[Rfam]
RNA sequence: UGUCUCCUCCACCGCCUCUAGGGUGGAUUCAACCCAGAGCCUCACGGCUCUGGGUUUUUUUA
Numbered sequence: 001u002g003u004c005u006c007c008u009c010c011a012c013c014g015c016c017u018c019u020a021g022g023g024u025g026g027a028u029u030c031a032a033c034c035c036a037g038a039g040c041c042u043c044a045c046g047g048c049u050c051u052g053g054g055u056u057u058u059u060u061u062a
Base pairs, nucleotide, nucleotide: 008027009026010025011024012023013022032055033054034053035052036051037050038049039048
Background: This 62-nucleotide RNA sequence from Roseateles toxinivorans belongs to the Rfam family "Betaproteobacteria toxic small RNA". For this family Rfam cites "A vast collection of microbial genes that are toxic to bacteria" (Kimelman et al., Genome Res, 2012). Rfam describes the family as follows. Overexpression in amino aid rich medium attenuates growth, suggesting role in repressing amino acid intake and metabolism.